[Rfam]
RNA sequence: GGGUCAGCUUUAGCUUAAGUGGUUACUUUGGCUUCUGCUUGUUGUGGACACAUAACCCUGCCUUGGGGUUCGAGACCCGCGGGUGCUCCCUGACCCUUUU
Numbered sequence: 001g002g003g004u005c006a007g008c009u010u011u012a013g014c015u016u017a018a019g020u021g022g023u024u025a026c027u028u029u030g031g032c033u034u035c036u037g038c039u040u041g042u043u044g045u046g047g048a049c050a051c052a053u054a055a056c057c058c059u060g061c062c063u064u065g066g067g068g069u070u071c072g073a074g075a076c077c078c079g080c081g082g083g084u085g086c087u088c089c090c091u092g093a094c095c096c097u098u099u100u
Base pairs, nucleotide, nucleotide: 002095003094004093005092006091007090013084014083015082016081019080020079021078022077027074028073029072030071031070
The family of this 100-nucleotide RNA sequence from Myotis myotis is "Vault RNA". A reference for the family is Stadler et al. (2009), "Evolution of Vault RNAs", Mol Biol Evol. This family of RNAs are found as part of the enigmatic vault ribonucleoprotein complex. The complex consists of a major vault protein (MVP), two minor vault proteins (VPARP and TEP1), and several small untranslated RNA molecules. It has been suggested that the vault complex is involved in drug resistance. The base pairs follow the family's consensus structure, which is taken from published work.